The record is a 306-nucleotide sequence from Metallosphaera yellowstonensis, which matches "Archaeal signal recognition particle RNA" in Rfam. The source organism's lineage runs through Archaea, Thermoprotei, Sulfolobaceae, Metallosphaera and Metallosphaera yellowstonensis. By type it is a non-coding RNA gene. The base pairs follow the family's consensus structure, which is taken from published work.

RNA sequence: GGGCCGGGUAGGGUGGAGGUCUCGCCAGCCUCUCAUCCCGUACGGCGUAAAGCGGGCACCAGUAACCCCCACAUGGGCGUCGAGCCCGUGGUGGGGUCCGAACCGUACGAUGAUGGCCGCCCAGCAGGGCUGACGGAUAGGGUCUCCACUCCUGGAGGGGAGAGGGGAACCCUAUUAGCUGGGGGAAUCGGUGAGGCCCGGAAGGGAGCAGCCGUGCCUGGACGUCAGAGCUUGCUGGUCACCGGUCGGAGGAAGAUUCGGGCUCACCCCCACCACAGGCAGGCGAGCAUGUGGGGGAGCCGGCCC
Numbered sequence: 001g002g003g004c005c006g007g008g009u010a011g012g013g014u015g016g017a018g019g020u021c022u023c024g025c026c027a028g029c030c031u032c033u034c035a036u037c038c039c040g041u042a043c044g045g046c047g048u049a050a051a052g053c054g055g056g057c058a059c060c061a062g063u064a065a066c067c068c069c070c071a072c073a074u075g076g077g078c079g080u081c082g083a084g085c086c087c088g089u090g091g092u093g094g095g096g097u098c099c100g101a102a103c104c105g106u107a108c109g110a111u112g113a114u115g116g117c118c119g120c121c122c123a124g125c126a127g128g129g130c131u132g133a134c135g136g137a138u139a140g141g142g143u144c145u146c147c148a149c150u151c152c153u154g155g156a157g158g159g160g161a162g163a164g165g166g167g168a169a170c171c172c173u174a175u176u177a178g179c180u181g182g183g184g185g186a187a188u189c190g191g192u193g194a195g196g197c198c199c200g201g202a203a204g205g206g207a208g209c210a211g212c213c214g215u216g217c218c219u220g221g222a223c224g225u226c227a228g229a230g231c232u233u234g235c236u237g238g239u240c241a242c243c244g245g246u247c248g249g250a251g252g253a254a255g256a257u258u259c260g261g262g263c264u265c266a267c268c269c270c271c272a273c274c275a276c277a278g279g280c281a282g283g284c285g286a287g288c289a290u291g292u293g294g295g296g297g298a299g300c301c302g303g304c305c306c
Stems, first nucleotide, its partner, number of pairs: 001306007009298001012060003015033006037056005066297010078285001080282001084280003088276008096263007104255001106253001108251001114248006121238008130228006136176007143168005149162005179221003183218002189214004197206003